This 209-nucleotide sequence from Clostridium intestinale belongs to the Rfam family "Enterococcus sRNA 1300".
RNA sequence: AUGUAUUCAGUACGUUUAAGAUAAGAAGGCAAUAAAAAAAGCGUUUAAAACAUCCACAAUGGUGGGCUUUUUUGUUGUGCUUAUUUUACGUAUUAGGACAUAGAUAGAGGGAGUGUAGUUAUAUUAUGCUAUGCGUUUUUCUUUGUGUCUUUUUAACGUUGAUAUGCAGACUAAAGAUUCCAUUGGGGAUUUUAGCCUGCAUUUUUUAU
Numbered sequence: 001a002u003g004u005a006u007u008c009a010g011u012a013c014g015u016u017u018a019a020g021a022u023a024a025g026a027a028g029g030c031a032a033u034a035a036a037a038a039a040a041g042c043g044u045u046u047a048a049a050a051c052a053u054c055c056a057c058a059a060u061g062g063u064g065g066g067c068u069u070u071u072u073u074g075u076u077g078u079g080c081u082u083a084u085u086u087u088a089c090g091u092a093u094u095a096g097g098a099c100a101u102a103g104a105u106a107g108a109g110g111g112a113g114u115g116u117a118g119u120u121a122u123a124u125u126a127u128g129c130u131a132u133g134c135g136u137u138u139u140u141c142u143u144u145g146u147g148u149c150u151u152u153u154u155a156a157c158g159u160u161g162a163u164a165u166g167c168a169g170a171c172u173a174a175a176g177a178u179u180c181c182a183u184u185g186g187g188g189a190u191u192u193u194a195g196c197c198u199g200c201a202u203u204u205u206u207u208a209u
Stems, first nucleotide, its partner, number of pairs: 006097002009094007019086007029078011041067002051064004099147006107141004115137001164202006171195002174192003178188004
The organism belongs to Clostridium intestinale, within Bacteria. About the family: Expressed in mid and late exponential phases of growth. A reference for the family is Sinel et al. (2017), "Small RNAs in vancomycin-resistant Enterococcus faecium involved in daptomycin response and resistance", Sci Rep. The family's RNA type in Rfam is small RNA.